[Rfam]
RNA sequence: GGUCAGUGAUGUGAUGUAAAAGGUCUGAAGCCCAGAUCUCCUCCCAGUUCCUAUGUUCCUCCCAGCAGCCCCGGCUGUGUUCCCAGCAUGCUCUAGGUGUGCGUGGUUGGUUUGCGGGGCGGCUGAUAUUGAGGGAGACGCUGCUGAGUGUGCGUCUCUGAGAGAGCAGCGAGACGCAGACGUACAGCAGCGUCCGACAGCAACACUGCACACAGGAGGGCGGAGCUAGGUUGACCUGGGUGGCUGAUCUCAACCUCAGACUGAGACC
Numbered sequence: 001g002g003u004c005a006g007u008g009a010u011g012u013g014a015u016g017u018a019a020a021a022g023g024u025c026u027g028a029a030g031c032c033c034a035g036a037u038c039u040c041c042u043c044c045c046a047g048u049u050c051c052u053a054u055g056u057u058c059c060u061c062c063c064a065g066c067a068g069c070c071c072c073g074g075c076u077g078u079g080u081u082c083c084c085a086g087c088a089u090g091c092u093c094u095a096g097g098u099g100u101g102c103g104u105g106g107u108u109g110g111u112u113u114g115c116g117g118g119g120c121g122g123c124u125g126a127u128a129u130u131g132a133g134g135g136a137g138a139c140g141c142u143g144c145u146g147a148g149u150g151u152g153c154g155u156c157u158c159u160g161a162g163a164g165a166g167c168a169g170c171g172a173g174a175c176g177c178a179g180a181c182g183u184a185c186a187g188c189a190g191c192g193u194c195c196g197a198c199a200g201c202a203a204c205a206c207u208g209c210a211c212a213c214a215g216g217a218g219g220g221c222g223g224a225g226c227u228a229g230g231u232u233g234a235c236c237u238g239g240g241u242g243g244c245u246g247a248u249c250u251c252a253a254c255c256u257c258a259g260a261c262u263g264a265g266a267c268c
Base pairs, nucleotide, nucleotide: 001268002267003266004265034250035249036248037247038246041233044230045229047227059218060217061216062215063125064124065123066122068120069119082110083109085107087105088104089103090102091101133195137194138193139192140191141190142189151178152177153176154175155174156173157172158171160170